This 299-nucleotide RNA from Eutypa lata belongs to the Rfam family "Group I catalytic intron". The family's consensus secondary structure is taken from published work. Rfam links the family to the GO term Group I intron splicing. The literature on the family includes a 1990 paper in Annu Rev Biochem by Cech, "Self-splicing of group I introns". The organism belongs to Eutypa lata, within Eukaryota. Rfam's curators write: Group I catalytic introns are large self-splicing ribozymes.
RNA sequence: GCUAGUCUAUCUAUAUUAUUUAAGCAACAAGGUAAUAUAGUUAGGCAAGAUUUUCAAAAUGACGGGGAUCCCCUAAAGUAAUUUCAACCAAACUAACCUAGUAAUAGAGUUGGUGGCACAGGUAAUGACUCGUGGUAUGGUAAAAUCGAAAUUAAUAUCUGAAAGUUAAUGGGCAAUCCGCAGCCAAGCACCUAAGCCGCCAAAUUAAUGGCGACAGGUGUGCAGUUCAACGACUAAAUGUAAAUCGGCUUUAAGAUUUAAGGCUUAAGAUAUAGUCUAACCUGGUAUGAAAAUACUGA
Numbered sequence: 001g002c003u004a005g006u007c008u009a010u011c012u013a014u015a016u017u018a019u020u021u022a023a024g025c026a027a028c029a030a031g032g033u034a035a036u037a038u039a040g041u042u043a044g045g046c047a048a049g050a051u052u053u054u055c056a057a058a059a060u061g062a063c064g065g066g067g068a069u070c071c072c073c074u075a076a077a078g079u080a081a082u083u084u085c086a087a088c089c090a091a092a093c094u095a096a097c098c099u100a101g102u103a104a105u106a107g108a109g110u111u112g113g114u115g116g117c118a119c120a121g122g123u124a125a126u127g128a129c130u131c132g133u134g135g136u137a138u139g140g141u142a143a144a145a146u147c148g149a150a151a152u153u154a155a156u157a158u159c160u161g162a163a164a165g166u167u168a169a170u171g172g173g174c175a176a177u178c179c180g181c182a183g184c185c186a187a188g189c190a191c192c193u194a195a196g197c198c199g200c201c202a203a204a205u206u207a208a209u210g211g212c213g214a215c216a217g218g219u220g221u222g223c224a225g226u227u228c229a230a231c232g233a234c235u236a237a238a239u240g241u242a243a244a245u246c247g248g249c250u251u252u253a254a255g256a257u258u259u260a261a262g263g264c265u266u267a268a269g270a271u272a273u274a275g276u277c278u279a280a281c282c283u284g285g286u287a288u289g290a291a292a293a294u295a296c297u298g299a
Stems, first nucleotide, its partner, number of pairs: 001025003005021001008018002028040001030038001049246005055240002060182002063180004071173003183226002188221004196215001198213003230278001232277005248264007284297005